[Rfam]
RNA sequence: UGCUUUGGUAGAGGUUGCGUUUAACAUAAGUAUAUUGUUUGAUAUGUCAGGCAUAGUUGAGAACAAUAGAAAGGGGACAACGCCGAAGUAAAGUAUAUCCUGAGUAUAUUUUGCUGGGCAUACAAUUAAGAAUUGUAUGACUGUCAUCUUAUAACUAUAAGAUGGUGCGCUAUCUAAAAG
Numbered sequence: 001u002g003c004u005u006u007g008g009u010a011g012a013g014g015u016u017g018c019g020u021u022u023a024a025c026a027u028a029a030g031u032a033u034a035u036u037g038u039u040u041g042a043u044a045u046g047u048c049a050g051g052c053a054u055a056g057u058u059g060a061g062a063a064c065a066a067u068a069g070a071a072a073g074g075g076g077a078c079a080a081c082g083c084c085g086a087a088g089u090a091a092a093g094u095a096u097a098u099c100c101u102g103a104g105u106a107u108a109u110u111u112u113g114c115u116g117g118g119c120a121u122a123c124a125a126u127u128a129a130g131a132a133u134u135g136u137a138u139g140a141c142u143g144u145c146a147u148c149u150u151a152u153a154a155c156u157a158u159a160a161g162a163u164g165g166u167g168c169g170c171u172a173u174c175u176a177a178a179a180g
Stems, first nucleotide, its partner, number of pairs: 007174005017083005025075001033068008087115012116142002119139008144165007

A member of the RNA family "Lysine riboswitch aptamer" from Candidatus Galacturonatibacter soehngenii, 180 nucleotides long. It scores 129 bits against the family's covariance model.